Background
A member of the RNA family "CpoB/ybgF ICR thermometer" from Rahnella aquatilis, 139 nucleotides long. The source organism's lineage runs through Bacteria, Pseudomonadati, Gammaproteobacteria, Rahnella and Rahnella aquatilis. It scores 136 bits against the family's covariance model. About the family: Imprinting control region from upstream of cpoB/ybgF (tol/pal system protein). Rfam links the family to the GO terms response to temperature stimulus and regulation of translation.
[Rfam]
RNA sequence: CCAAAUCUCUAUCGUUUCUUACGGUAAAGAAAAACCAGCUGUACUGGGCCAUGACGAAGCGGCAUACGCUAAAAACCGUCGUGCCGUACUGGUAUACUAAGAGAAUAGUAUGAGCAGUAACUUCAGAACUCACCUGUUG
Numbered sequence: 001c002c003a004a005a006u007c008u009c010u011a012u013c014g015u016u017u018c019u020u021a022c023g024g025u026a027a028a029g030a031a032a033a034a035c036c037a038g039c040u041g042u043a044c045u046g047g048g049c050c051a052u053g054a055c056g057a058a059g060c061g062g063c064a065u066a067c068g069c070u071a072a073a074a075a076c077c078g079u080c081g082u083g084c085c086g087u088a089c090u091g092g093u094a095u096a097c098u099a100a101g102a103g104a105a106u107a108g109u110a111u112g113a114g115c116a117g118u119a120a121c122u123u124c125a126g127a128a129c130u131c132a133c134c135u136g137u138u139g
Stems, first nucleotide, its partner, number of pairs: 001047003007041001014035004019030002054138001057135001059133001062130001065127001068124001075118002078115001079113006086106002089103002
On this family, see Righetti et al., Proc Natl Acad Sci U S A 2016: "Temperature-responsive in vitro RNA structurome of Yersinia pseudotuberculosis".